[Rfam]
RNA sequence: GAUUGCCGUGCUACGGCUCCGGCAACGUGUCCUUGUUAUACUUCAAGGGAGAGGUAAUCCUUCACCAUGUCAAACGACGGUGUAAAAACAGUAGCG
Number, nucleotide and partner (000 for none) at each position: 001g000002a000003u025004u024005g023006c022007c021008g020009u000010g017011c016012u000013a000014c000015g000016g011017c010018u000019c000020c008021g007022g006023c005024a004025a003026c000027g000028u000029g000030u000031c000032c000033u000034u000035g000036u000037u000038a000039u000040a000041c000042u000043u000044c000045a000046a000047g000048g000049g000050a000051g000052a000053g000054g000055u000056a000057a000058u000059c000060c000061u000062u000063c082064a081065c080066c079067a000068u000069g000070u000071c000072a000073a000074a000075c000076g000077a000078c000079g066080g065081u064082g063083u000084a000085a000086a000087a000088a000089c000090a000091g000092u000093a000094g000095c000096g000
Background: Shown here is a 96-nucleotide sequence from butyrate-producing bacterium SS3/4, a member of the family "RT-9 RNA". The family's RNA type in Rfam is small RNA. Rfam's curators put it in the seed alignment. Lineage of the source: Bacteria > Bacillati > Bacillota > Clostridia > Eubacteriales.